[Rfam]
RNA sequence: GCUCCCACAGGAAAUGGUGUCUUCCUGCCCCAACCGCCCCGAAUGCUUUCGGGACUAAUGGCGCCUACAAAUAG
Numbered sequence: 001g002c003u004c005c006c007a008c009a010g011g012a013a014a015u016g017g018u019g020u021c022u023u024c025c026u027g028c029c030c031c032a033a034c035c036g037c038c039c040c041g042a043a044u045g046c047u048u049u050c051g052g053g054a055c056u057a058a059u060g061g062c063g064c065c066u067a068c069a070a071a072u073a074g
Stems, first nucleotide, its partner, number of pairs: 010025004016065006036055001038053006
The record is a 74-nucleotide RNA from Ilyomonas limi, which matches "Fluoride riboswitch aptamer (crcB RNA motif)" in Rfam. It scores 43 bits against the family's covariance model.